[Rfam]
RNA sequence: UCAAUGCGAUGAUGAAUUAUGAAUUUUCGCAUGUCAGACUUCAGAGACGCCUCUGGCGUCCAUGAGAUGACAUAUCAUAUGACUGAGCAAUGA
Numbered sequence: 001u002c003a004a005u006g007c008g009a010u011g012a013u014g015a016a017u018u019a020u021g022a023a024u025u026u027u028c029g030c031a032u033g034u035c036a037g038a039c040u041u042c043a044g045a046g047a048c049g050c051c052u053c054u055g056g057c058g059u060c061c062a063u064g065a066g067a068u069g070a071c072a073u074a075u076c077a078u079a080u081g082a083c084u085g086a087g088c089a090a091u092g093a
Base pairs, nucleotide, nucleotide: 001093002092003091005089006088007087046060047059048058049057
Small nucleolar RNA R64/Z200 family: a 93-nucleotide RNA sequence from Aegilops tauschii. Rfam links the family to the GO terms nucleolus and RNA processing. By type it is a C/D-box small nucleolar RNA. The source organism's lineage runs through Eukaryota, Embryophyta, Tracheophyta, Euphyllophyta and Aegilops tauschii. The literature on the family includes a 2002 paper in Mol Cell Biol by Galardi et al., "Purified box C/D snoRNPs are able to reproduce site-specific 2'-O-methylation of target RNA in vitro". The base pairs follow the family's consensus structure, which was predicted with PFOLD.